[Rfam]
Shown here is a 135-nucleotide RNA from Cavia porcellus, a member of the family "Small nucleolar RNA SNORA70".
Rfam 15.1 lists 5,173 matches to the family in 383 species.
The family's consensus secondary structure was predicted with PFOLD.
Rfam's curators write: snoRNA U70 seems to be exclusive to mammals and is a member of the H/ACA class of snoRNA which contain H (ANANNA) and ACA box motifs. H/ACA box snoRNAs are involved in the conversion of uridines to pseudouridines (5-ribosyluracil) a constituent of structural RNAs (transfer, ribosomal, small nuclear, and small nucleolar).
By type it is an H/ACA-box small nucleolar RNA.
A search with the family's covariance model found it, with a score of 123 bits.
Taxonomically the source falls in Cavia (Eukaryota, Metazoa, Eumetazoa, Theria).
The literature on the family includes a 2000 paper in IUBMB Life by Charette and Gray, "Pseudouridine in RNA: what, where, how, and why".
Rfam links the family to the GO terms nucleolus and RNA processing.
RNA sequence: CUGCAGUUAGUUAAGCUGACUGGGCGCCUUUGCUGGUGGGUGCCCUGUGUACAAUGGCUGCAGACAGCAACCUCCUUGGCAGUGUAUGCAGCCCGUUGCUUGUAUGAGCUGCCCCUAGGGACCUUGGAGACACUG
Numbered sequence: 001c002u003g004c005a006g007u008u009a010g011u012u013a014a015g016c017u018g019a020c021u022g023g024g025c026g027c028c029u030u031u032g033c034u035g036g037u038g039g040g041u042g043c044c045c046u047g048u049g050u051a052c053a054a055u056g057g058c059u060g061c062a063g064a065c066a067g068c069a070a071c072c073u074c075c076u077u078g079g080c081a082g083u084g085u086a087u088g089c090a091g092c093c094c095g096u097u098g099c100u101u102g103u104a105u106g107a108g109c110u111g112c113c114c115c116u117a118g119g120g121a122c123c124u125u126g127g128a129g130a131c132a133c134u135g
Base pairs, nucleotide, nucleotide: 002053003052005050019048020047022045025042026041027040028039078123079122089111090110091109092108094106